[Rfam]
RNA sequence: AUACUAUGAUAGUUGCAUAGUUCAUCAGAAAGUCCUGAAGAGAUGCACUUUGUCUGAUGUAUCU
Dot-bracket structure: ((((.(.(((..(((..........)))...))).)..((((.....)))).......))))..
Numbered sequence: 001a002u003a004c005u006a007u008g009a010u011a012g013u014u015g016c017a018u019a020g021u022u023c024a025u026c027a028g029a030a031a032g033u034c035c036u037g038a039a040g041a042g043a044u045g046c047a048c049u050u051u052g053u054c055u056g057a058u059g060u061a062u063c064u
Stems, first nucleotide, its partner, number of pairs: 001062004006036001008034003013028003039051004
Source information: Shown here is a 64-nucleotide sequence from Erinaceus europaeus, a member of the family "Small nucleolar RNA SNORD77". The family's RNA type in Rfam is C/D-box small nucleolar RNA. The family is grouped with related families in Rfam's "SNORD77 clan". The family's consensus secondary structure was predicted with RNAalifold. The sequence is in the family's curated seed alignment. About the family: U77 belongs to the C/D family of snoRNAs.